[Rfam]
RNA sequence: CAGCCUGAAAUGAUGCUUCUUUACAUUUCAUGUCUCUUCUCUGACAUUUAUGUCUGGAGAUAGUUCUUGCCUUACAAUCUGAUCAGGCUG
Numbered sequence: 001c002a003g004c005c006u007g008a009a010a011u012g013a014u015g016c017u018u019c020u021u022u023a024c025a026u027u028u029c030a031u032g033u034c035u036c037u038u039c040u041c042u043g044a045c046a047u048u049u050a051u052g053u054c055u056g057g058a059g060a061u062a063g064u065u066c067u068u069g070c071c072u073u074a075c076a077a078u079c080u081g082a083u084c085a086g087g088c089u090g
Base pairs, nucleotide, nucleotide: 001090002089003088004087005086
This 90-nucleotide RNA sequence from Diceros bicornis belongs to the Rfam family "Small nucleolar RNA SNORD111". Lineage of the source: Eukaryota > Chordata > Vertebrata > Tetrapoda > Diceros bicornis. The family's consensus secondary structure was predicted with RNAalifold. The family's RNA type in Rfam is C/D-box small nucleolar RNA. A reference for the family is Galardi et al. (2002), "Purified box C/D snoRNPs are able to reproduce site-specific 2'-O-methylation of target RNA in vitro", Mol Cell Biol.